Notes:
A member of the RNA family "DUF3800-X RNA", 95 nucleotides long. The family's RNA type in Rfam is small RNA.
[Rfam]
RNA sequence: UUACAAGUAAAUCCCUUCCAGAAAGGAGACCUCUCACGAGGCACUUCACCGCCAUGUGUAGUGGAGUAUCGUUACGAGUAUGGAAGGUAUUGUAA
Numbered sequence: 001u002u003a004c005a006a007g008u009a010a011a012u013c014c015c016u017u018c019c020a021g022a023a024a025g026g027a028g029a030c031c032u033c034u035c036a037c038g039a040g041g042c043a044c045u046u047c048a049c050c051g052c053c054a055u056g057u058g059u060a061g062u063g064g065a066g067u068a069u070c071g072u073u074a075c076g077a078g079u080a081u082g083g084a085a086g087g088u089a090u091u092g093u094a095a
Stems, first nucleotide, its partner, number of pairs: 001095006014087007043067007
It is one of the family's seed sequences.